[Rfam]
RNA sequence: GGAGAAGGACAGAUGAUCGCCGGUCCGUAUUACGGGCGGGAGGAAAGUCCGGGCUCCAUAGGGCAGGAUGGUUCCUAACGGGAACCGGGGGUGACCCCAGGGAUAGUGCCACAGAGAGAAGACCGCCUUUUUGCACUUCGGUGCAGGGAGGUAAGGGUGAAAGGGUGAGGUAAGAGCUCACCAGGUCCGGCGGUGACGCCGGAUGCUAGGUAAACCCCAUCCGGAGCAAGGCCGAAUAGAGGAGUGUUUGAGAGCGGUCCGUUCGAGACUCCCGGGUUGGCUGCUGGAGGCCGUCGGCAACGGCGGUCCUAGAGGAAUGAUCAUCGCUUUUUUGCAGGUGACUGCAUUAAAGAACAGAACCCGGCUUACGUCCUUGUCCGGCC
Numbered sequence: 001g002g003a004g005a006a007g008g009a010c011a012g013a014u015g016a017u018c019g020c021c022g023g024u025c026c027g028u029a030u031u032a033c034g035g036g037c038g039g040g041a042g043g044a045a046a047g048u049c050c051g052g053g054c055u056c057c058a059u060a061g062g063g064c065a066g067g068a069u070g071g072u073u074c075c076u077a078a079c080g081g082g083a084a085c086c087g088g089g090g091g092u093g094a095c096c097c098c099a100g101g102g103a104u105a106g107u108g109c110c111a112c113a114g115a116g117a118g119a120a121g122a123c124c125g126c127c128u129u130u131u132u133g134c135a136c137u138u139c140g141g142u143g144c145a146g147g148g149a150g151g152u153a154a155g156g157g158u159g160a161a162a163g164g165g166u167g168a169g170g171u172a173a174g175a176g177c178u179c180a181c182c183a184g185g186u187c188c189g190g191c192g193g194u195g196a197c198g199c200c201g202g203a204u205g206c207u208a209g210g211u212a213a214a215c216c217c218c219a220u221c222c223g224g225a226g227c228a229a230g231g232c233c234g235a236a237u238a239g240a241g242g243a244g245u246g247u248u249u250g251a252g253a254g255c256g257g258u259c260c261g262u263u264c265g266a267g268a269c270u271c272c273c274g275g276g277u278u279g280g281c282u283g284c285u286g287g288a289g290g291c292c293g294u295c296g297g298c299a300a301c302g303g304c305g306g307u308c309c310u311a312g313a314g315g316a317a318u319g320a321u322c323a324u325c326g327c328u329u330u331u332u333u334g335c336a337g338g339u340g341a342c343u344g345c346a347u348u349a350a351a352g353a354a355c356a357g358a359a360c361c362c363g364g365c366u367u368a369c370g371u372c373c374u375u376g377u378c379c380g381g382c383c
Stems, first nucleotide, its partner, number of pairs: 001379003005375006012325007020040002023037006045367003049364005054226004061260004066222005071085005086100001087098004101217002106215002108211003123156002125152012164182006184206001185204008230282004241272005252264004289308008
Rfam assigns this 383-nucleotide RNA from Syntrophotalea acetylenivorans to the family "Bacterial RNase P class A".
By type it is a ribozyme.
A search with the family's covariance model found it, with a score of 321 bits.